[Rfam]
RNA sequence: UCAACUACCCCGGCCUAAAGGCCGAUCUUGAAGAAGUUCAGUUGACCAGGGACGGCGCUUCGGCGCUACGUUGUACGGAAGACAGAAGACCGACCGGCGAAUGCUUCCUCAGUUCGCCGCUCUCGAAGUCGCAGCAGCAGACACGGUUUUGGGUAUCCCCGAAACGGGCUGCGACCGGCGAAGCGAUUCGUUCUCUGCCGCACAACAUUUCCGAGGGGAGA
Number, nucleotide and partner (000 for none) at each position: 001u045002c044003a043004a042005c041006u040007a000008c000009c000010c000011c000012g000013g000014c021015c020016u000017a000018a000019a000020g015021g014022c000023c000024g000025a000026u000027c036028u035029u034030g000031a000032a000033g000034a029035a028036g027037u000038u000039c000040a006041g005042u004043u003044g002045a001046c000047c000048a000049g212050g211051g210052a209053c000054g067055g066056c065057g064058c063059u000060u000061c000062g000063g058064c057065g056066c055067u054068a000069c000070g206071u205072u204073g203074u202075a000076c200077g199078g198079a000080a000081g000082a000083c000084a000085g000086a000087a000088g000089a000090c125091c000092g000093a000094c000095c119096g118097g117098c116099g115100a114101a113102u112103g000104c000105u220106u219107c218108c217109u216110c215111a000112g102113u101114u100115c099116g098117c097118c096119g095120c000121u000122c000123u000124c000125g090126a000127a000128g175129u174130c173131g172132c171133a170134g169135c168136a000137g000138c000139a000140g000141a000142c000143a000144c166145g000146g165147u164148u163149u162150u161151g160152g159153g158154u000155a000156u000157c000158c153159c152160c151161g150162a149163a148164a147165c146166g144167g000168g135169c134170u133171g132172c131173g130174a129175c128176c000177g000178g000179c000180g000181a000182a000183g000184c000185g000186a000187u000188u000189c000190g000191u000192u000193c000194u000195c000196u000197g000198c078199c077200g076201c000202a074203c073204a072205a071206c070207a000208u000209u052210u051211c050212c049213g000214a000215g110216g109217g108218g107219a106220g105221a000